[Rfam]
RNA sequence: CUGCUGUGACGAUCAUAACUUACCUACUAAGACUUCACAAUGGUUAGACGUUACUCGUACUGUCUGAGCAG
Number, nucleotide and partner (000 for none) at each position: 001c071002u070003g069004c068005u000006g000007u000008g000009a000010c000011g000012a000013u000014c000015a000016u000017a000018a000019c000020u000021u000022a000023c000024c000025u000026a000027c000028u000029a000030a000031g000032a000033c000034u000035u000036c000037a000038c000039a000040a000041u000042g000043g000044u000045u000046a000047g000048a000049c000050g000051u000052u000053a000054c000055u000056c000057g000058u000059a000060c000061u000062g000063u000064c000065u000066g000067a000068g004069c003070a002071g001